[Rfam]
Overview
Rfam assigns this 46-nucleotide RNA to the family "Acido-Lenti-1 RNA". The base pairs follow the family's consensus structure, which is taken from published work. The family's RNA type in Rfam is small RNA. It scores 47 bits against the family's covariance model.

RNA sequence: CCAGGGGCUGGCGCCCCUGGCUACGCGCUGCCGUCCCUCCGGGACU
Number, nucleotide and partner (000 for none) at each position: 001c020002c019003a018004g017005g016006g015007g014008c013009u000010g000011g000012c000013g008014c007015c006016c005017c004018u003019g002020g001021c000022u000023a000024c000025g000026c000027g000028c000029u000030g000031c000032c000033g045034u044035c043036c042037c041038u000039c000040c000041g037042g036043g035044a034045c033046u000